Rfam assigns this 103-nucleotide RNA from Granulicella mallensis to the family "SAM riboswitch aptamer (S box leader)". The base pairs follow the family's consensus structure, which is taken from published work. Gene Ontology term of the family: regulation of gene expression. A search with the family's covariance model found it, with a score of 68 bits. The source organism's lineage runs through Bacteria, Acidobacteriota, Terriglobales, Acidobacteriaceae and Granulicella mallensis. From the family's description: The SAM riboswitch is found upstream of a number of genes which code for proteins involved in methionine or cysteine biosynthesis in Gram-positive bacteria.

[Rfam]
RNA sequence: AUUUCAUGCAGAGUGGUUGAGGGACGAGCCCUGUGACGCCACGACAACCGGACAGAAUAAAGUACCGGUGUCAACUCUCUCCUGGGAACAGGGCACAUGAGGU
Numbered sequence: 001a002u003u004u005c006a007u008g009c010a011g012a013g014u015g016g017u018u019g020a021g022g023g024a025c026g027a028g029c030c031c032u033g034u035g036a037c038g039c040c041a042c043g044a045c046a047a048c049c050g051g052a053c054a055g056a057a058u059a060a061a062g063u064a065c066c067g068g069u070g071u072c073a074a075c076u077c078u079c080u081c082c083u084g085g086g087a088a089c090a091g092g093g094c095a096c097a098u099g100a101g102g103u
Base pairs, nucleotide, nucleotide: 001103002102003101004100005099006098007097008096013042014041015040016039017038021031022030023029026079027078028077043072044071045070046069048068049067050065052063053062076095081092082091083090084089